[Rfam]
RNA sequence: GUUUCUUUGGCAGUGUCUUAGCUGGUUGUUGGAUGUGAUGGCUGAAGAAGCAAUCAGCAAGCAUACUGCUUCAGAAGU
Numbered sequence: 001g002u003u004u005c006u007u008u009g010g011c012a013g014u015g016u017c018u019u020a021g022c023u024g025g026u027u028g029u030u031g032g033a034u035g036u037g038a039u040g041g042c043u044g045a046a047g048a049a050g051c052a053a054u055c056a057g058c059a060a061g062c063a064u065a066c067u068g069c070u071u072c073a074g075a076a077g078u
Base pairs, nucleotide, nucleotide: 002077003076004075005074006073009070010069012067013066014065015064016063018061019060021058023056024055025054026053027052028051029050030049
mir-34 microRNA precursor family: a 78-nucleotide RNA sequence from Ophiophagus hannah.
The sequence is in the family's curated seed alignment.
Rfam describes the family as follows. Human mir-34a was discovered computationally and later experimentally verified. The mature sequence is excised from the 5' arm of the hairpin.
The base pairs follow the family's consensus structure, which was predicted with RNAalifold.
Lineage of the source: Eukaryota > Teleostomi > Amniota > Bifurcata > Ophiophagus.